[Rfam]
RNA sequence: UCUGCUUCUCUUAACAGUAUACGUGCCUGUGAAUUAAUUUAUAUGGUUCCUGGGUAAUGAGGAGAUGGGAAGCAGAAAUUAAUGUUCCUCUCGCUAUCCAGUGCAGAAUUUCUUGUGUUGCGAUUGGACGUCGAGGAGCUACACUU
Numbered sequence: 001u002c003u004g005c006u007u008c009u010c011u012u013a014a015c016a017g018u019a020u021a022c023g024u025g026c027c028u029g030u031g032a033a034u035u036a037a038u039u040u041a042u043a044u045g046g047u048u049c050c051u052g053g054g055u056a057a058u059g060a061g062g063a064g065a066u067g068g069g070a071a072g073c074a075g076a077a078a079u080u081a082a083u084g085u086u087c088c089u090c091u092c093g094c095u096a097u098c099c100a101g102u103g104c105a106g107a108a109u110u111u112c113u114u115g116u117g118u119u120g121c122g123a124u125u126g127g128a129c130g131u132c133g134a135g136g137a138g139c140u141a142c143a144c145u146u
Base pairs, nucleotide, nucleotide: 001077003074004073005072008069009068010067012064015062018059019058028052029051033047034046035045084139085138086137087136088135089134090133092130093129097128098127099126100125101124106118108116
The record is a 146-nucleotide sequence from Triticum turgidum, which matches "Small nucleolar RNA snoR136" in Rfam. Rfam classes the family as an H/ACA-box small nucleolar RNA. The source organism's lineage runs through Eukaryota, Magnoliopsida, Petrosaviidae, Triticodae and Triticum turgidum. Rfam links the family to the GO terms nucleolus and RNA processing.